[Rfam]
RNA sequence: CUUGCUUAAUGAGGAUAAACCUUAAAUUAUUCCGAUAGUAUAUGAAUGGAUAAUUUACCUCCUACUCAUUCUGA
Numbered sequence: 001c002u003u004g005c006u007u008a009a010u011g012a013g014g015a016u017a018a019a020c021c022u023u024a025a026a027u028u029a030u031u032c033c034g035a036u037a038g039u040a041u042a043u044g045a046a047u048g049g050a051u052a053a054u055u056u057a058c059c060u061c062c063u064a065c066u067c068a069u070u071c072u073g074a
Stems, first nucleotide, its partner, number of pairs: 007068001009066001030050002033044001
Dot-bracket structure: ......(.(....................((.(..........)....))...............).)......
Small nucleolar RNA Z105: a 74-nucleotide sequence from Salvia splendens. A reference for the family is Chen et al. (2003), "The high diversity of snoRNAs in plants: identification and comparative study of 120 snoRNA genes from Oryza sativa", Nucleic Acids Res. The source organism's lineage runs through Eukaryota, Magnoliopsida, Mesangiospermae, Pentapetalae and core Calosphace.